[Rfam]
RNA: Bacterial large subunit ribosomal RNA, nucleotides 2566 to 2822
RNA sequence: GGAUAUUUGCAAGGAGCUGUCCCUAGUACGAGAGGACCGGGAUGGACGCACCUCUGGUGCACCAGUUGUCACGCCAGUGGCACAGCUGGGCAGCUAUGUGCGGAACGGAUAAACGCUGAAGGCAUCUAAGCGUGAAGCCGCCCUUAAGAUAAGAUAUCCCAUCUUUAUGAGUAAGACCCCUUGAAGACUACAAGGUUGAUAGGCACAAAGUGUAAGUGCAGUGAUGCAUUAAGCUAGCGUGUACUAAUUGGUCGAGG
Numbered sequence: 001g002g003a004u005a006u007u008u009g010c011a012a013g014g015a016g017c018u019g020u021c022c023c024u025a026g027u028a029c030g031a032g033a034g035g036a037c038c039g040g041g042a043u044g045g046a047c048g049c050a051c052c053u054c055u056g057g058u059g060c061a062c063c064a065g066u067u068g069u070c071a072c073g074c075c076a077g078u079g080g081c082a083c084a085g086c087u088g089g090g091c092a093g094c095u096a097u098g099u100g101c102g103g104a105a106c107g108g109a110u111a112a113a114c115g116c117u118g119a120a121g122g123c124a125u126c127u128a129a130g131c132g133u134g135a136a137g138c139c140g141c142c143c144u145u146a147a148g149a150u151a152a153g154a155u156a157u158c159c160c161a162u163c164u165u166u167a168u169g170a171g172u173a174a175g176a177c178c179c180c181u182u183g184a185a186g187a188c189u190a191c192a193a194g195g196u197u198g199a200u201a202g203g204c205a206c207a208a209a210g211u212g213u214a215a216g217u218g219c220a221g222u223g224a225u226g227c228a229u230u231a232a233g234c235u236a237g238c239g240u241g242u243a244c245u246a247a248u249u250g251g252u253c254g255a256g257g
Stems, first nucleotide, its partner, number of pairs: 001159008011145004017045007047102005055096003062089005067082006106140003113133005162170001172255001175253004179195005200246003203242004209235002216229005